Shown here is a 173-nucleotide sequence from Acidaminococcus intestini, a member of the family "Group II catalytic intron D1-D4-3". The base pairs follow the family's consensus structure. It is one of the family's seed sequences.
[Rfam]
RNA sequence: GACACCGUGAGGUGGAAUCUGAAGGAAGGUGCAGGCAAAUCUCUGACCUGACGAACAGAAACCGCAUAAGGCCAAUUCGGGAUGGAUAAGGGAGUAAAACAGACUGAAGUCCCAUAAUGACUCGGAAUCCCCAAGGGUAGAUGCGGCAGGUGGGUGGAGAGAAAGAGUGUGUU
Number, nucleotide and partner (000 for none) at each position: 001g000002a000003c014004a013005c012006c011007g000008u000009g000010a000011g006012g005013u004014g003015g000016a000017a000018u000019c000020u000021g000022a000023a000024g000025g000026a000027a000028g173029g172030u171031g170032c169033a000034g000035g000036c165037a000038a000039a000040u160041c159042u158043c157044u156045g155046a151047c150048c149049u148050g147051a000052c000053g000054a000055a000056c000057a000058g000059a000060a000061a000062c146063c145064g144065c143066a142067u000068a000069a000070g000071g138072c137073c136074a000075a000076u134077u133078c000079g131080g130081g129082a128083u000084g112085g111086a110087u109088a000089a000090g105091g104092g000093a000094g000095u000096a000097a000098a000099a000100c000101a000102g000103a000104c091105u090106g000107a000108a000109g087110u086111c085112c084113c000114a000115u000116a000117a000118u000119g000120a000121c000122u000123c000124g000125g000126a000127a000128u082129c081130c080131c079132c000133a077134a076135g000136g073137g072138u071139a000140g000141a000142u066143g065144c064145g063146g062147c050148a049149g048150g047151u046152g000153g000154g000155u045156g044157g043158a042159g041160a040161g000162a000163a000164a000165g036166a000167g000168u000169g032170u031171g030172u029173u028